[Rfam]
RNA sequence: AGAUUCUUUAACACAGUCCAGAGAGGCUGAGAAGGAUACCGGACAAGCGAAUCAAUGAAUUCGUUUAAAGACCCCUCUCUGCCUUUAUGCAGAAGGGGUUUUUGUUU
Numbered sequence: 001a002g003a004u005u006c007u008u009u010a011a012c013a014c015a016g017u018c019c020a021g022a023g024a025g026g027c028u029g030a031g032a033a034g035g036a037u038a039c040c041g042g043a044c045a046a047g048c049g050a051a052u053c054a055a056u057g058a059a060u061u062c063g064u065u066u067a068a069a070g071a072c073c074c075c076u077c078u079c080u081g082c083c084u085u086u087a088u089g090c091a092g093a094a095g096g097g098g099u100u101u102u103u104g105u106u107u
Stems, first nucleotide, its partner, number of pairs: 003037007014029005048063005068102009079092004
Shown here is a 107-nucleotide RNA from Bacillus licheniformis, a member of the family "PyrR binding site". Taxonomically the source falls in Bacillus licheniformis (Bacteria, Bacilli, Caryophanales, Bacillus). The family's RNA type in Rfam is cis-regulatory element. A search with the family's covariance model found it, with a score of 61 bits. A reference for the family is Bonner et al. (2001), "Molecular recognition of pyr mRNA by the Bacillus subtilis attenuation regulatory protein PyrR", Nucleic Acids Res.